[Rfam]
RNA sequence: CUGGUUCCGGUUCACGUUCGUACCGUGCGGACGACCCGGGGCACC
Numbered sequence: 001c002u003g004g005u006u007c008c009g010g011u012u013c014a015c016g017u018u019c020g021u022a023c024c025g026u027g028c029g030g031a032c033g034a035c036c037c038g039g040g041g042c043a044c045c
Base pairs, nucleotide, nucleotide: 003045004044005043007039008038009037010036015033016032017031018030019029020028021027022026
The record is a 45-nucleotide sequence from Kribbella solani, which matches "L31-Actinobacteria ribosomal protein leader" in Rfam. Rfam classes the family as a cis-regulatory leader. Pairs were carried over by alignment from the consensus structure, which is taken from published work.